[Rfam]
RNA sequence: CCCUCCGAAGUUUCCCUCAGGAUAGCUAUCAACGGAGAACAGUUUUAUCAGGUAAAGCGAAUGAUUAGAGGCAUUGGGGACGCUUAGUCCUCGACCUAUUCUCAAACUUUAAAUGGGUAAGAGCUAAGGAUUGCUUUAGUGAAUUCUUAGGAUAAAUGACGUUGUUGUGUGGGCCAUAUUUGGUAAGCAGAUCUGGCGAUGAGGGAUGAACCUAAUGCGUGGUUAAGGUGCCAAAGUGCUCGCUCAUCAGAAACCAUAAAGGGUGUUGGUUCAUUUUAACAGCAGGACGGUGGUCAUGGAAGUCGAAAUCCGCUAAGGAGUGUGUAACAACUCACCUGCCGAAUGGACUAGCCCCGAAAAUGGAUGGCGCUUAAGCGGGUCACCGAUACCACGCCAUUAUUGCAAUUGCGAUGCAAUAAUGUGUAGGGGGGCGUGGGAGUAUUGACGAAGUGUUUGGCGUAAGCCUGCAUGAAAUAGCUUCUAGUGCAGAU
Numbered sequence: 001c002c003c004u005c006c007g008a009a010g011u012u013u014c015c016c017u018c019a020g021g022a023u024a025g026c027u028a029u030c031a032a033c034g035g036a037g038a039a040c041a042g043u044u045u046u047a048u049c050a051g052g053u054a055a056a057g058c059g060a061a062u063g064a065u066u067a068g069a070g071g072c073a074u075u076g077g078g079g080a081c082g083c084u085u086a087g088u089c090c091u092c093g094a095c096c097u098a099u100u101c102u103c104a105a106a107c108u109u110u111a112a113a114u115g116g117g118u119a120a121g122a123g124c125u126a127a128g129g130a131u132u133g134c135u136u137u138a139g140u141g142a143a144u145u146c147u148u149a150g151g152a153u154a155a156a157u158g159a160c161g162u163u164g165u166u167g168u169g170u171g172g173g174c175c176a177u178a179u180u181u182g183g184u185a186a187g188c189a190g191a192u193c194u195g196g197c198g199a200u201g202a203g204g205g206a207u208g209a210a211c212c213u214a215a216u217g218c219g220u221g222g223u224u225a226a227g228g229u230g231c232c233a234a235a236g237u238g239c240u241c242g243c244u245c246a247u248c249a250g251a252a253a254c255c256a257u258a259a260a261g262g263g264u265g266u267u268g269g270u271u272c273a274u275u276u277u278a279a280c281a282g283c284a285g286g287a288c289g290g291u292g293g294u295c296a297u298g299g300a301a302g303u304c305g306a307a308a309u310c311c312g313c314u315a316a317g318g319a320g321u322g323u324g325u326a327a328c329a330a331c332u333c334a335c336c337u338g339c340c341g342a343a344u345g346g347a348c349u350a351g352c353c354c355c356g357a358a359a360a361u362g363g364a365u366g367g368c369g370c371u372u373a374a375g376c377g378g379g380u381c382a383c384c385g386a387u388a389c390c391a392c393g394c395c396a397u398u399a400u401u402g403c404a405a406u407u408g409c410g411a412u413g414c415a416a417u418a419a420u421g422u423g424u425a426g427g428g429g430g431g432c433g434u435g436g437g438a439g440u441a442u443u444g445a446c447g448a449a450g451u452g453u454u455u456g457g458c459g460u461a462a463g464c465c466u467g468c469a470u471g472a473a474a475u476a477g478c479u480u481c482u483a484g485u486g487c488a489g490a491u
Stems, first nucleotide, its partner, number of pairs: 001431006011024001013022003027167002030164004043122007055110001056108002062104003067099001069097003074094006081087001124150009173197004178192005202213003217394005223388001227384003236381001238380001241377003261355003265352010282339005288312003294306002313317001318333001322331002395421009432486001434483007443474001450470002456465003
This 491-nucleotide part of an RNA from uncultured eukaryote HF0200_37F04 belongs to the Rfam family "Eukaryotic large subunit ribosomal RNA". The base pairs follow the family's consensus structure, which is taken from published work. Taxonomically the source falls in named eukaryotic clones (Eukaryota).